Shown here is a 57-nucleotide RNA from Dictyostelium purpureum, a member of the family "Class I RNA from Dictyostelium". Taxonomically the source falls in Dictyostelium (Eukaryota, Evosea, Eumycetozoa, Dictyostelia). Dictyostelium Class I RNA was first reported for Aspegren et al. 2004 in Dictyostelium discoideum.
RNA sequence: GAAUUCCUUACAGCAAUAUAACUCAUUCAAAAUUUAACUCUGAAAUCUCGAAUUCUG
Dot-bracket structure: ((((((...........................................))))))..
Rfam classes the family as a non-coding RNA gene.